[Rfam]
Nucleotides: 064
Stems, first nucleotide, its partner, number of pairs: 008028006032057008
Number, partner (000 for none) and nucleotide at each position: 001000u002000g003000u004000c005000u006000c007000c008028u009027c010026c011025a012024c013023c014000u015000c016000c017000u018000c019000c020000u021000u022000u023013g024012g025011u026010g027009g028008a029000u030000u031000a032057a033056a034055c035054c036053c037052g038051a039050g040000c041000c042000u043000c044000a045000a046000g047000g048000c049000g050039c051038u052037c053036g054035g055034g056033u057032u058000u059000u060000u061000u062000u063000u064000c
The family of this 64-nucleotide RNA sequence from Caballeronia concitans is "Betaproteobacteria toxic small RNA". From the family's description: Overexpression in amino aid rich medium attenuates growth, suggesting role in repressing amino acid intake and metabolism. The base pairs follow the family's consensus structure, which was predicted with WAR. Rfam 15.1 lists 951 matches to the family in 508 species. A search with the family's covariance model found it, with a score of 70 bits.